[Rfam]
RNA: bZIP non canonical Hac1/Xbp1 intron
RNA sequence: CUGUGUGCCCACACUCACUGGAUCUGCAGCAUCCAAUGCUGACCCUCUGCAGCAGGGUACACAAGUGGACACACAG
Numbered sequence: 001c002u003g004u005g006u007g008c009c010c011a012c013a014c015u016c017a018c019u020g021g022a023u024c025u026g027c028a029g030c031a032u033c034c035a036a037u038g039c040u041g042a043c044c045c046u047c048u049g050c051a052g053c054a055g056g057g058u059a060c061a062c063a064a065g066u067g068g069a070c071a072c073a074c075a076g
Stems, first nucleotide, its partner, number of pairs: 001076007009068004019035005042058005
Dot-bracket structure: (((((((.((((......(((((.......)))))......(((((.......)))))......)))).)))))))